[Rfam]
RNA sequence: ACCUAUCUCAAGUUUGUGCGUGAAUCAGACCCCAUCACAGCCGUUCAUUUCUAAUCAAUCCCAUACCAUACCAUCCGAUGGUGUUAGAUUCACGCACAAACUCUUGAUUUGUCU
Numbered sequence: 001a002c003c004u005a006u007c008u009c010a011a012g013u014u015u016g017u018g019c020g021u022g023a024a025u026c027a028g029a030c031c032c033c034a035u036c037a038c039a040g041c042c043g044u045u046c047a048u049u050u051c052u053a054a055u056c057a058a059u060c061c062c063a064u065a066c067c068a069u070a071c072c073a074u075c076c077g078a079u080g081g082u083g084u085u086a087g088a089u090u091c092a093c094g095c096a097c098a099a100a101c102u103c104u105u106g107a108u109u110u111g112u113c114u
Base pairs, nucleotide, nucleotide: 001112002111005108006107007106011102012101013100014099015098016097017096018095019094020093021092022091023090024089025088026087028085029084030083032081033080045070
RNA: MIR403 microRNA precursor family
Organism: Quercus lobata